RNA sequence: GCGCCAGUAGCUCAGUUGGAUAGAGUACCUGGCUACGAACCAGGGGGUCGUGGGUUCGAAUCCUGCCUGGCGCA
Numbered sequence: 001g002c003g004c005c006a007g008u009a010g011c012u013c014a015g016u017u018g019g020a021u022a023g024a025g026u027a028c029c030u031g032g033c034u035a036c037g038a039a040c041c042a043g044g045g046g047g048u049c050g051u052g053g054g055u056u057c058g059a060a061u062c063c064u065g066c067c068u069g070g071c072g073c074a
Base pairs, nucleotide, nucleotide: 001073002072003071004070005069006068007067010026011025012024013023028044029043030042031041032040050066051065052064053063054062

Background:
Shown here is a 74-nucleotide RNA sequence from Sutterella sp. AM11-39, a member of the family "tRNA". The family's RNA type in Rfam is transfer RNA. Rfam describes the family as follows. Transfer RNA (tRNA) molecules are approximately 80 nucleotides in length. Their secondary structure includes four short double-helical elements and three loops (D, anti-codon, and T loops). Further hydrogen bonds mediate the characteristic L-shaped molecular structure. tRNAs have two regions of fundamental functional importance: the anti-codon, which is responsible for specific mRNA codon recognition, and the 3' end, to which the tRNAs corresponding amino acid is attached (by aminoacyl-tRNA synthetases). tRNAs cope with the degeneracy of the genetic code in two manners: having more than one tRNA (with a specific anti-codon) for a particular amino acid; and 'wobble' base-pairing, i.e. permitting non-standard base-pairing at the 3rd anti-codon position.